[Rfam]
RNA sequence: CGGCACACCCUGGCCAAGGGAAUUCGGCAAGUUAGCCCCGUAACCUAGGGAUAAGGGGUGCCUGCCACGAGGGUGGCAGGUCGCAGUGACAAGGGAGCGCUGACUGUCUAAUAACAACAUAGCUGAUCGCCAAACCGAAAGGUCUAGUACGAUCAGUGAAUCCUGCCCAGUGCAGGUACCUGAAAACCCCGUCCAAGGGGAAGAAGGGCCUGUCAACGGCGGGGGUAACUAUAACCCUCUUAAGGUAGCGUAGUACCUUGCCGCUUAAUUGGCGGCUUGCAUGAAUGGAUCAACGAGCGCUCCACUGUCCCUGGCCAGGCGCCGGUGAACAUUACAUCCUAGUGCAGAGUCUAGGGA
Numbered sequence: 001c002g003g004c005a006c007a008c009c010c011u012g013g014c015c016a017a018g019g020g021a022a023u024u025c026g027g028c029a030a031g032u033u034a035g036c037c038c039c040g041u042a043a044c045c046u047a048g049g050g051a052u053a054a055g056g057g058g059u060g061c062c063u064g065c066c067a068c069g070a071g072g073g074u075g076g077c078a079g080g081u082c083g084c085a086g087u088g089a090c091a092a093g094g095g096a097g098c099g100c101u102g103a104c105u106g107u108c109u110a111a112u113a114a115c116a117a118c119a120u121a122g123c124u125g126a127u128c129g130c131c132a133a134a135c136c137g138a139a140a141g142g143u144c145u146a147g148u149a150c151g152a153u154c155a156g157u158g159a160a161u162c163c164u165g166c167c168c169a170g171u172g173c174a175g176g177u178a179c180c181u182g183a184a185a186a187c188c189c190c191g192u193c194c195a196a197g198g199g200g201a202a203g204a205a206g207g208g209c210c211u212g213u214c215a216a217c218g219g220c221g222g223g224g225g226u227a228a229c230u231a232u233a234a235c236c237c238u239c240u241u242a243a244g245g246u247a248g249c250g251u252a253g254u255a256c257c258u259u260g261c262c263g264c265u266u267a268a269u270u271g272g273c274g275g276c277u278u279g280c281a282u283g284a285a286u287g288g289a290u291c292a293a294c295g296a297g298c299g300c301u302c303c304a305c306u307g308u309c310c311c312u313g314g315c316c317a318g319g320c321g322c323c324g325g326u327g328a329a330c331a332u333u334a335c336a337u338c339c340u341a342g343u344g345c346a347g348a349g350u351c352u353a354g355g356g357a
Stems, first nucleotide, its partner, number of pairs: 001324004009319008018310003035059005044049001060081009082086001094303007101295002105119003122157008130147001134143003160290004165220003170217002172213005179208003187200004221239006240244001260276006338355005
Shown here is a 357-nucleotide part of an RNA from Methanocella conradii, a member of the family "Archaeal large subunit ribosomal RNA".
Rfam 15.1 lists 2,955 matches to the family in 1,139 species.
The match comes from Rfam's covariance-model search (2790 bits).
Clan: LSU clan.